[Rfam]
RNA sequence: CCGCCGGUAGGAGUCCGGUCCGGGUAGCUGCCAGGAGGCCCGGUAGCAGGCUGGCGGCUGGGUCUGGAAACGGACCUGGUCGAAGCCCAGCGUCGAAAGCCUUGUCAGGGGGAGCGACUGCGCGGUCCGUAGCAUGA
Numbered sequence: 001c002c003g004c005c006g007g008u009a010g011g012a013g014u015c016c017g018g019u020c021c022g023g024g025u026a027g028c029u030g031c032c033a034g035g036a037g038g039c040c041c042g043g044u045a046g047c048a049g050g051c052u053g054g055c056g057g058c059u060g061g062g063u064c065u066g067g068a069a070a071c072g073g074a075c076c077u078g079g080u081c082g083a084a085g086c087c088c089a090g091c092g093u094c095g096a097a098a099g100c101c102u103u104g105u106c107a108g109g110g111g112g113a114g115c116g117a118c119u120g121c122g123c124g125g126u127c128c129g130u131a132g133c134a135u136g137a
Stems, first nucleotide, its partner, number of pairs: 020043005050091005055082006064073001066071001100112004114130003

Group II catalytic intron D1-D4-4: a 137-nucleotide sequence from Rugosimonospora africana. A reference for the family is Bonen and Vogel (2001), "The ins and outs of group II introns", Trends Genet. Its family is annotated with Group II intron splicing in the Gene Ontology. Taxonomically the source falls in Rugosimonospora (Bacteria, Bacillati, Actinomycetes, Micromonosporales). The base pairs follow the family's consensus structure. From the family's description: Group II introns are found in rRNA, tRNA and mRNA of organelles in fungi, plants and protists, and also in mRNA in bacteria.